[Rfam]
This 128-nucleotide RNA sequence from Aurantimonas coralicida belongs to the Rfam family "TPP riboswitch aptamer (THI element)". About the family: Vitamin B(1) in its active form thiamin pyrophosphate (TPP) is an essential coenzyme that is synthesised by coupling of pyrimidine and thiazole moieties in bacteria. The family's consensus secondary structure is taken from published work.
RNA sequence: CGCUCGUCCAAGGGGAGUUCCGGCAAGGAACUGAGAGGCCGACGGCCGCCGAUCAUCGGCGAAGCGCGCGGCGACCCUACGAACCUGAUCCAGUUCAUACUGGCGUAGGGAUGGGAAAGCCGCCGACC
Number, nucleotide and partner (000 for none) at each position: 001c000002g000003c000004u000005c000006g000007u115008c114009c113010a112011a078012g077013g076014g075015g000016a000017g031018u030019u029020c028021c027022g000023g000024c000025a000026a000027g021028g020029a019030a018031c017032u000033g000034a000035g000036a000037g000038g072039c071040c070041g069042a000043c000044g000045g000046c000047c000048g000049c000050c000051g000052a000053u000054c000055a000056u000057c000058g000059g000060c000061g000062a000063a000064g000065c000066g000067c000068g000069c041070g040071g039072c038073g000074a000075c014076c013077c012078u011079a000080c000081g000082a000083a000084c109085c108086u107087g106088a000089u000090c103091c102092a101093g100094u000095u000096c000097a000098u000099a000100c093101u092102g091103g090104c000105g000106u087107a086108g085109g084110g000111a000112u010113g009114g008115g007116a000117a000118a000119g000120c000121c000122g000123c000124c000125g000126a000127c000128c000